Overview
Rfam assigns this 58-nucleotide RNA to the family "pemK RNA". The base pairs follow the family's consensus structure, which is taken from published work.

[Rfam]
RNA sequence: AUAAUGAUACUUCUCUACGGAGCAGGCGGAGUACCCGGCUGAGGUGAGAUUCCUAUGA
Numbered sequence: 001a002u003a004a005u006g007a008u009a010c011u012u013c014u015c016u017a018c019g020g021a022g023c024a025g026g027c028g029g030a031g032u033a034c035c036c037g038g039c040u041g042a043g044g045u046g047a048g049a050u051u052c053c054u055a056u057g058a
Stems, first nucleotide, its partner, number of pairs: 012055001013022003023041003027037003042054003